[Rfam]
RNA: Small nucleolar RNA SNORA70
Organism: Microcebus murinus
RNA sequence: UCACAUUCAAUUUAGCUGACCAUGCUCCUUUCCUCAUAGGGGCCAGGUGUGCAACGGUUGCAAACUCCUUGGUAGUGUAUGCAGCCUGUUGCUUGUAUGGCUUGAUCUACGGGGCCUUGGAGUUAGCC
Numbered sequence: 001u002c003a004c005a006u007u008c009a010a011u012u013u014a015g016c017u018g019a020c021c022a023u024g025c026u027c028c029u030u031u032c033c034u035c036a037u038a039g040g041g042g043c044c045a046g047g048u049g050u051g052c053a054a055c056g057g058u059u060g061c062a063a064a065c066u067c068c069u070u071g072g073u074a075g076u077g078u079a080u081g082c083a084g085c086c087u088g089u090u091g092c093u094u095g096u097a098u099g100g101c102u103u104g105a106u107c108u109a110c111g112g113g114g115c116c117u118u119g120g121a122g123u124u125a126g127c128c
Base pairs, nucleotide, nucleotide: 004051005050019048020047021046025042026041027040028039071116072115073114082104083103084102086100087099